RNA sequence: CAUUGUUCUGAUCACCGCCAGAUCAGAAAUUAGAGAAGAAGGAUCAGCUCAGUCCUUUGGACCUGACCAACUUGUCACAGGAGCUACUGCUUGCAACUUCUUCGGCCUCUCUCCGAAAGAAUGAAUUACACAAGUUAUAUCUUGGUUGUUCAGCUCUGUAUCCUU
Number, nucleotide and partner (000 for none) at each position: 001c000002a000003u000004u000005g000006u000007u000008c000009u069010g068011a000012u066013c065014a064015c000016c115017g114018c000019c000020a110021g109022a108023u000024c000025a000026g106027a000028a000029a000030u000031u000032a101033g100034a099035g098036a000037a000038g000039a000040a000041g000042g092043a091044u000045c089046a088047g087048c000049u000050c000051a085052g084053u083054c000055c000056u081057u080058u079059g078060g000061a000062c000063c000064u014065g013066a012067c000068c010069a009070a000071c000072u000073u000074g000075u000076c000077a000078c059079a058080g057081g056082a000083g053084c052085u051086a000087c047088u046089g045090c000091u043092u042093g000094c000095a000096a000097c000098u035099u034100c033101u032102u000103c000104g000105g000106c026107c000108u022109c021110u020111c000112u000113c000114c017115g016116a000117a165118a164119g163120a000121a161122u160123g159124a000125a000126u000127u139128a138129c000130a136131c000132a000133a000134g000135u000136u130137a000138u128139a127140u000141c000142u000143u000144g155145g154146u153147u152148g000149u000150u000151c000152a147153g146154c145155u144156c000157u000158g000159u123160a122161u121162c000163c119164u118165u117
RNA: Interferon gamma 5' UTR regulatory element